raiA RNA: a 207-nucleotide sequence. It is annotated as a riboswitch. Pairs were carried over by alignment from the consensus structure, which is taken from published work.
RNA sequence: UGUAUUCGGGUCUGUGGUUGAAAGCCGAUGCCAGACGCGGGCAAAGCGGUCCACGUAAACCGGACAAAGCUCCGGCGAGCAUGGCGCGUUCUAGUCGUAAGUCCGACCGUUCCUUACGGGGCGAGAGAGGGCGCGUAGGGCGCUUACGCGAUGAGCAGACCCUCCUGUCGGCGAAUGUGGGGUCAAAGACCAGGUCAGCCGGAUGCA
Dot-bracket structure: (((((((((..((((((((........((([..((((((.]........((........(.((.......)).).......[))))))))............((((((((((......)))))...((((....((....(((....)))....))....))))..)))))....)))......]..)))))...))))))))))))
Numbered sequence: 001u002g003u004a005u006u007c008g009g010g011u012c013u014g015u016g017g018u019u020g021a022a023a024g025c026c027g028a029u030g031c032c033a034g035a036c037g038c039g040g041g042c043a044a045a046g047c048g049g050u051c052c053a054c055g056u057a058a059a060c061c062g063g064a065c066a067a068a069g070c071u072c073c074g075g076c077g078a079g080c081a082u083g084g085c086g087c088g089u090u091c092u093a094g095u096c097g098u099a100a101g102u103c104c105g106a107c108c109g110u111u112c113c114u115u116a117c118g119g120g121g122c123g124a125g126a127g128a129g130g131g132c133g134c135g136u137a138g139g140g141c142g143c144u145u146a147c148g149c150g151a152u153g154a155g156c157a158g159a160c161c162c163u164c165c166u167g168u169c170g171g172c173g174a175a176u177g178u179g180g181g182g183u184c185a186a187a188g189a190c191c192a193g194g195u196c197a198g199c200c201g202g203a204u205g206c207a
Stems, first nucleotide, its partner, number of pairs: 001207009012198003015192005028178003031041001034090006050084002060074001062072002082185001103171005108123005127164004135156002141150003